[Rfam]
A member of the RNA family "TPP riboswitch aptamer (THI element)" from Marinomonas pollencensis, 100 nucleotides long. The organism belongs to Marinomonas, within Bacteria. The match comes from Rfam's covariance-model search (76 bits).

RNA sequence: CCAUCAUAGUCGGGGGGCAUUUUUGCUGAGAUCGUAUAACACGAGACCCGUUGAACCUGAUUCAGUUAACACUGGCGUAGGGAACUAUUGUGAUAGAGGG
Number, nucleotide and partner (000 for none) at each position: 001c000002c000003a000004u000005c000006a088007u087008a086009g085010u084011c050012g049013g048014g047015g000016g000017g026018c025019a024020u000021u000022u000023u000024u019025g018026c017027u000028g000029a000030g000031a000032u000033c043034g042035u041036a000037u000038a000039a000040c000041a035042c034043g033044a000045g000046a000047c014048c013049c012050g011051u000052u000053g000054a000055a000056c081057c080058u079059g078060a000061u000062u075063c074064a073065g072066u000067u000068a000069a000070c000071a000072c065073u064074g063075g062076c000077g000078u059079a058080g057081g056082g000083a000084a010085c009086u008087a007088u006089u000090g000091u000092g000093a000094u000095a000096g000097a000098g000099g000100g000